[Rfam]
The family of this 103-nucleotide RNA from Pseudomonas sp. GV071 is "Guanidine-I riboswitch aptamer". On this family, see Barrick et al., Proc Natl Acad Sci U S A 2004: "New RNA motifs suggest an expanded scope for riboswitches in bacterial genetic control". A search with the family's covariance model found it, with a score of 81 bits. Lineage of the source: Bacteria > Pseudomonadati > Pseudomonadales > Pseudomonadaceae > Pseudomonas.
RNA sequence: CCAGAGGCGAACUAGGGUUCCGGUCCACAGAGGUGGACGCUGGUCCGAGAGUUUUCCGGCCCUAAGGAAUAGGGCUACACGGCGGGAGAAAAGCCCGGGAGAC
Numbered sequence: 001c002c003a004g005a006g007g008c009g010a011a012c013u014a015g016g017g018u019u020c021c022g023g024u025c026c027a028c029a030g031a032g033g034u035g036g037a038c039g040c041u042g043g044u045c046c047g048a049g050a051g052u053u054u055u056c057c058g059g060c061c062c063u064a065a066g067g068a069a070u071a072g073g074g075c076u077a078c079a080c081g082g083c084g085g086g087a088g089a090a091a092a093g094c095c096c097g098g099g100a101g102a103c
Stems, first nucleotide, its partner, number of pairs: 007056001009054004015046002020043002022040001023038006058076007078098001080101001084096003